[Rfam]
Shown here is a 76-nucleotide RNA from Equus caballus, a member of the family "mir-544 microRNA precursor family". The organism belongs to Equus, within Eukaryota. The literature on the family includes a 2010 paper in Genes Dev by Chiang et al., "Mammalian microRNAs: experimental evaluation of novel and previously annotated genes".
RNA sequence: GGCAUCUUGUUAAAACGCAGACUUGGAUUCAGCAGGUCUGGGAUGAGGCCCAAGAUUCUGCAUUUUUAACAAGUUC
Numbered sequence: 001g002g003c004a005u006c007u008u009g010u011u012a013a014a015a016c017g018c019a020g021a022c023u024u025g026g027a028u029u030c031a032g033c034a035g036g037u038c039u040g041g042g043a044u045g046a047g048g049c050c051c052a053a054g055a056u057u058c059u060g061c062a063u064u065u066u067u068a069a070c071a072a073g074u075u076c
Stems, first nucleotide, its partner, number of pairs: 002076001006073007013065003017061005023055002